[Rfam]
The family of this 262-nucleotide RNA from Anaerostipes rhamnosivorans is "Bacterial large signal recognition particle RNA". Taxonomically the source falls in Anaerostipes (Bacteria, Bacillati, Lachnospirales, Lachnospiraceae). The family is grouped with related families in Rfam's "SRP clan".
RNA sequence: CCGUGCAGCCGGGGAGGCAGCGGUGCCCUGUAUCUGCAAUCCGCUAUAGCAGAGGUGAUGGCCUGUUUAGGGCUUUUCUUUGUGGAGCUGCCCUUUAUAAGUGGCGUUGAUGUUUGGGUCUUGCGCAAUGAGAAUCUAUGAACCGUGUCAGGUCGGGAACGAAGCAGCACUAAGUAGAACCUCUCAUGUGCCGUAAGGGUGCCUGAGCUGAGUUAACUGUAGAGGUAACGUCUGUGAAGAGAGUUCGACACAGGCCGCACGG
Numbered sequence: 001c002c003g004u005g006c007a008g009c010c011g012g013g014g015a016g017g018c019a020g021c022g023g024u025g026c027c028c029u030g031u032a033u034c035u036g037c038a039a040u041c042c043g044c045u046a047u048a049g050c051a052g053a054g055g056u057g058a059u060g061g062c063c064u065g066u067u068u069a070g071g072g073c074u075u076u077u078c079u080u081u082g083u084g085g086a087g088c089u090g091c092c093c094u095u096u097a098u099a100a101g102u103g104g105c106g107u108u109g110a111u112g113u114u115u116g117g118g119u120c121u122u123g124c125g126c127a128a129u130g131a132g133a134a135u136c137u138a139u140g141a142a143c144c145g146u147g148u149c150a151g152g153u154c155g156g157g158a159a160c161g162a163a164g165c166a167g168c169a170c171u172a173a174g175u176a177g178a179a180c181c182u183c184u185c186a187u188g189u190g191c192c193g194u195a196a197g198g199g200u201g202c203c204u205g206a207g208c209u210g211a212g213u214u215a216a217c218u219g220u221a222g223a224g225g226u227a228a229c230g231u232c233u234g235u236g237a238a239g240a241g242a243g244u245u246c247g248a249c250a251c252a253g254g255c256c257g258c259a260c261g262g
Base pairs, nucleotide, nucleotide: 001262002261003260004259005258006257008056009055010054011029012028013027014026016024018022033053034052035051036050037049061255062254063253064252065251066250070246071245072244073243074242076241077240078239079238080237081236082235083234084233085232089227090226093224094223095222096221097220098219101217102216103214104213105212112208113207114206115205116204117203118202119201120197121196122195123194124193125192126188127187129186130185131184132183133182135178136177137176138175139174145170146169147168148167153162154161155160